[Rfam]
Rfam assigns this 76-nucleotide RNA sequence from Saimiri boliviensis to the family "mir-320 microRNA precursor family". Rfam 15.1 lists 659 matches to the family in 129 species. The family's consensus secondary structure was predicted with RNAalifold. A search with the family's covariance model found it, with a score of 88 bits. Rfam links the family to the GO terms negative regulation of gene expression, RISC complex and cellular response to glucose stimulus. The literature on the family includes a 2006 paper in Genome Res by Berezikov et al., "Many novel mammalian microRNA candidates identified by extensive cloning and RAKE analysis".

RNA sequence: AAUUUUUUGGGCCUUCUCUUCCCGGUUCUUCCUGGAAUUGGGAAAAGCUGGGUUGAGAGGGCGAAAAAAAAAAAUU
Numbered sequence: 001a002a003u004u005u006u007u008u009g010g011g012c013c014u015u016c017u018c019u020u021c022c023c024g025g026u027u028c029u030u031c032c033u034g035g036a037a038u039u040g041g042g043a044a045a046a047g048c049u050g051g052g053u054u055g056a057g058a059g060g061g062c063g064a065a066a067a068a069a070a071a072a073a074a075u076u
Stems, first nucleotide, its partner, number of pairs: 014059005021052005029044006